[Rfam]
RNA sequence: GGUCUGUGAUGAUAGGUAAAAGGUAUGAUGCUAUACACCCCUCUACUUUUCAGAGCCUUGCUCUCCCAGGGUUCUCUCUUACAUUCCAGUCUAGCUCAAGGUGUGCUUGACUGGUUGUGAUGCUCCCUGACAUCUUAAAUGGGUAUCUAGCCUGUCCAAGUUUCUGAGAGCUUAGAGUCAUGGCAGCAAGAUGCACCCAACAAAAAUAAUGGUAAAGGAGAAUUAAUAGGCUUGAAGAGAAAGGGGCAAAGCAUGAUCUGAAGUUUUCAAUCUGAGACC
Number, nucleotide and partner (000 for none) at each position: 001g279002g278003u277004c276005u000006g000007u000008g000009a000010u000011g000012a000013u000014a000015g000016g000017u000018a000019a000020a000021a000022g000023g000024u000025a000026u000027g000028a000029u000030g000031c000032u000033a000034u260035a259036c000037a257038c000039c255040c000041c000042u000043c000044u000045a000046c239047u238048u237049u236050u235051c234052a233053g232054a000055g000056c000057c000058u000059u000060g000061c000062u000063c220064u219065c218066c217067c129068a128069g127070g126071g125072u000073u000074c000075u000076c000077u000078c000079u000080u000081a000082c000083a000084u000085u000086c114087c113088a112089g111090u110091c109092u000093a107094g106095c105096u000097c000098a000099a000100g000101g000102u000103g000104u000105g095106c094107u093108u000109g091110a090111c089112u088113g087114g086115u000116u000117g000118u000119g000120a000121u000122g000123c000124u000125c071126c070127c069128u068129g067130a000131c000132a000133u000134c000135u000136u000137a000138a000139a000140u000141g197142g196143g000144u000145a000146u193147c000148u000149a000150g000151c000152c000153u000154g000155u000156c183157c182158a181159a000160g179161u000162u177163u176164c175165u174166g000167a000168g000169a000170g000171c000172u000173u000174a165175g164176a163177g162178u000179c160180a000181u158182g157183g156184c000185a000186g000187c000188a000189a000190g000191a000192u000193g146194c000195a000196c142197c141198c000199a000200a000201c000202a000203a000204a000205a000206a000207u000208a000209a000210u000211g000212g000213u000214a000215a000216a000217g066218g065219a064220g063221a000222a000223u000224u000225a000226a000227u000228a000229g000230g000231c000232u053233u052234g051235a050236a049237g048238a047239g046240a000241a000242a000243g000244g000245g000246g000247c000248a000249a000250a000251g000252c000253a000254u000255g039256a000257u037258c000259u035260g034261a000262a000263g000264u000265u000266u000267u000268c000269a000270a000271u000272c000273u000274g000275a000276g004277a003278c002279c001
Shown here is a 279-nucleotide RNA sequence from Erpetoichthys calabaricus, a member of the family "Small Cajal body specific RNA 6". It is annotated as a small Cajal body RNA. NCBI's taxonomy places the organism under Eukaryota, Gnathostomata, Actinopterygii, Polypteridae, Erpetoichthys. Its family is annotated with nucleolus and RNA processing in the Gene Ontology. Rfam 15.1 lists 1,309 matches to the family in 627 species.